[Rfam]
RNA sequence: GGUGGGUGCAGAGCUUAGUUGAUUGGUGAACAGCUAUUAUUUUCUCCUUUGUUCACAGUGGCUAAGUUCAUCACCUGUA
Numbered sequence: 001g002g003u004g005g006g007u008g009c010a011g012a013g014c015u016u017a018g019u020u021g022a023u024u025g026g027u028g029a030a031c032a033g034c035u036a037u038u039a040u041u042u043u044c045u046c047c048u049u050u051g052u053u054c055a056c057a058g059u060g061g062c063u064a065a066g067u068u069c070a071u072c073a074c075c076u077g078u079a
Stems, first nucleotide, its partner, number of pairs: 011069010026056007

The family of this 79-nucleotide RNA sequence from Electrophorus electricus is "mir-27 microRNA precursor family".
Its family is annotated with miRNA-mediated post-transcriptional gene silencing and RISC complex in the Gene Ontology.